[Rfam]
RNA sequence: AAAGGAGCAAUAACCUUUCUUGAUAAACCAAGAAAGAGGUUAUUGCUCCUUUUAUU
Numbered sequence: 001a002a003a004g005g006a007g008c009a010a011u012a013a014c015c016u017u018u019c020u021u022g023a024u025a026a027a028c029c030a031a032g033a034a035a036g037a038g039g040u041u042a043u044u045g046c047u048c049c050u051u052u053u054a055u056u
Base pairs, nucleotide, nucleotide: 001052002051003050004049005048006047007046008045009044010043011042012041013040014039017034018033019032020031021030022029
The record is a 56-nucleotide RNA, which matches "Plastid-psbA-3 3UTR RNA" in Rfam. Rfam's curators write: Plastid psbA-3 is a non-coding RNA (ncRNA) present in plastids. It was identified in inverted repeat sequences in the 3 prime untranslate region (3UTR) of photosystem II quinone-binding protein (psbA). Clan: Plastid-psbA 3UTR RNA clan. For this family Rfam cites "Retrograde signaling in plants: A critical review focusing on the GUN pathway and beyond" (Richter et al., Plant Commun, 2023).